Shown here is an 80-nucleotide RNA sequence from Ameiurus melas, a member of the family "Small nucleolar RNA SNORD79". The family's RNA type in Rfam is C/D-box small nucleolar RNA. Rfam links the family to the GO terms nucleolus and RNA processing. From the family's description: snoRNA U79 or Z22 is found in intron 7 of the gas5 gene in humans and is also present in mice. The organism belongs to Ameiurus, within Eukaryota.

RNA sequence: UACUGUUGAUGAUGAUUGUUAUUAAUACAAUGGGAAUCUCUCUGAAUAAGAGUGAAAGACACACUUGUACUGAAACAGUA
Numbered sequence: 001u002a003c004u005g006u007u008g009a010u011g012a013u014g015a016u017u018g019u020u021a022u023u024a025a026u027a028c029a030a031u032g033g034g035a036a037u038c039u040c041u042c043u044g045a046a047u048a049a050g051a052g053u054g055a056a057a058g059a060c061a062c063a064c065u066u067g068u069a070c071u072g073a074a075a076c077a078g079u080a
Base pairs, nucleotide, nucleotide: 001080002079003078004077005076006075007074
Dot-bracket structure: (((((((..................................................................)))))))